[Rfam]
RNA sequence: GAGACAACCCUAUGGAGCAGUACUCAUUUCAGUGAGGUUUUGGUGCUCACUGAGUCUGCCCCUUGAAUGUGUCACU
Numbered sequence: 001g002a003g004a005c006a007a008c009c010c011u012a013u014g015g016a017g018c019a020g021u022a023c024u025c026a027u028u029u030c031a032g033u034g035a036g037g038u039u040u041u042g043g044u045g046c047u048c049a050c051u052g053a054g055u056c057u058g059c060c061c062c063u064u065g066a067a068u069g070u071g072u073c074a075c076u
Stems, first nucleotide, its partner, number of pairs: 001075001003073004011065002014062002017059003022055002029053008037044002
mir-9229 microRNA precursor family: a 76-nucleotide RNA from Myotis davidii. The family's consensus secondary structure was predicted with RNAalifold.